[Rfam]
Annotation
A member of the RNA family "U5 spliceosomal RNA" from Salix dunnii, 116 nucleotides long. For this family Rfam cites "The spliceosomal snRNAs of Caenorhabditis elegans" (Thomas et al., Nucleic Acids Res, 1990). It scores 64 bits against the family's covariance model. Lineage of the source: Eukaryota > Tracheophyta > Mesangiospermae > Pentapetalae > Salix. It is annotated as a spliceosomal small nuclear RNA.
RNA sequence: AGAUGCGCGGAGAGCACAGAGAGAACUAUUUUUUCGCCUUUUACUAGAGAAGACCGUGUGCUCGUCGCAAAAAGUGGCAUAUGCCAAUUUUUCGAAGAGUUUAUUCUUAUGCCUGU
Numbered sequence: 001a002g003a004u005g006c007g008c009g010g011a012g013a014g015c016a017c018a019g020a021g022a023g024a025a026c027u028a029u030u031u032u033u034u035c036g037c038c039u040u041u042u043a044c045u046a047g048a049g050a051a052g053a054c055c056g057u058g059u060g061c062u063c064g065u066c067g068c069a070a071a072a073a074g075u076g077g078c079a080u081a082u083g084c085c086a087a088u089u090u091u092u093c094g095a096a097g098a099g100u101u102u103a104u105u106c107u108u109a110u111g112c113c114u115g116u
Stems, first nucleotide, its partner, number of pairs: 004076003008067003012063007027053001029051006095116001098114002101111001